[Rfam]
Rfam assigns this 229-nucleotide RNA sequence from Planifilum fulgidum to the family "T-box leader".
The source organism's lineage runs through Bacteria, Bacillati, Bacilli, Caryophanales and Planifilum.
Gene Ontology term of the family: tRNA binding.
From the family's description: Uncharged tRNA acts as the effector for transcription antitermination of genes in the T-box leader family. T-boxes are found upstream of many aminoacyl-tRNA synthetase genes and some amino acid biosynthetic genes usually in Gram-positive bacteria.

RNA sequence: UCAAAGGCGAGGAUGAGAACCAGUACCCGGAAGAGGGCGGCGGCAGAGAGACGGUGGUCGGUGCAAACCGUCCCGCUCCUCCGGGGAAUCCCUCUCGGAGCCGUGCGCGAAAGCGGCGGAAGCCGCAGAAGCGUCGACCGGAUCGACGGCCGUUAUCCCGUCCAGAGGUGGAUCGGGGAUGUGUUUUCCCGGUCAAAAAGGGUGGCAACGCGGGCCUUCCGUCCCUUUG
Numbered sequence: 001u002c003a004a005a006g007g008c009g010a011g012g013a014u015g016a017g018a019a020c021c022a023g024u025a026c027c028c029g030g031a032a033g034a035g036g037g038c039g040g041c042g043g044c045a046g047a048g049a050g051a052c053g054g055u056g057g058u059c060g061g062u063g064c065a066a067a068c069c070g071u072c073c074c075g076c077u078c079c080u081c082c083g084g085g086g087a088a089u090c091c092c093u094c095u096c097g098g099a100g101c102c103g104u105g106c107g108c109g110a111a112a113g114c115g116g117c118g119g120a121a122g123c124c125g126c127a128g129a130a131g132c133g134u135c136g137a138c139c140g141g142a143u144c145g146a147c148g149g150c151c152g153u154u155a156u157c158c159c160g161u162c163c164a165g166a167g168g169u170g171g172a173u174c175g176g177g178g179a180u181g182u183g184u185u186u187u188c189c190c191g192g193u194c195a196a197a198a199a200g201g202g203u204g205g206c207a208a209c210g211c212g213g214g215c216c217u218u219c220c221g222u223c224c225c226u227u228u229g
Base pairs, nucleotide, nucleotide: 007101008100015096016095017094018093026085027084028083029082030081031080040074050072051071052070053069054068055067104137105134106133107132108131139152140151141150171194172193173192174191175190176189177188178187179186199226200225201224202223210222211221212220213219214218